[Rfam]
RNA: Nucleoid-associated noncoding RNA 4 (CssrE)
Organism: Shigella flexneri
RNA sequence: GGCUGGAUAAGGCGUUCACGCCGCAUCCGGCAGCCGUGCCCAACUGCCUGAUGCGAUGCUUGACGUGUCUUAUCAGGCC
Number, nucleotide and partner (000 for none) at each position: 001g000002g031003c030004u029005g028006g027007a026008u025009a000010a000011g022012g021013c020014g019015u000016u000017c000018a000019c014020g013021c012022c011023g000024c000025a008026u007027c006028c005029g004030g003031c002032a000033g000034c000035c000036g000037u000038g000039c000040c000041c000042a000043a000044c000045u000046g078047c077048c076049u075050g074051a073052u072053g071054c000055g069056a068057u067058g066059c065060u000061u000062g000063a000064c000065g059066u058067g057068u056069c055070u000071u053072a052073u051074c050075a049076g048077g047078c046079c000